[Rfam]
RNA: tRNA
RNA sequence: CGGGGUGUAGCGCAGUCCGGUAGCGCACGUGCAUUGGGGGCAUGUGGUCGGCGGUUCAAAUCCGCCCACCCCGA
Numbered sequence: 001c002g003g004g005g006u007g008u009a010g011c012g013c014a015g016u017c018c019g020g021u022a023g024c025g026c027a028c029g030u031g032c033a034u035u036g037g038g039g040g041c042a043u044g045u046g047g048u049c050g051g052c053g054g055u056u057c058a059a060a061u062c063c064g065c066c067c068a069c070c071c072c073g074a
Stems, first nucleotide, its partner, number of pairs: 001073007010026004028044005050066005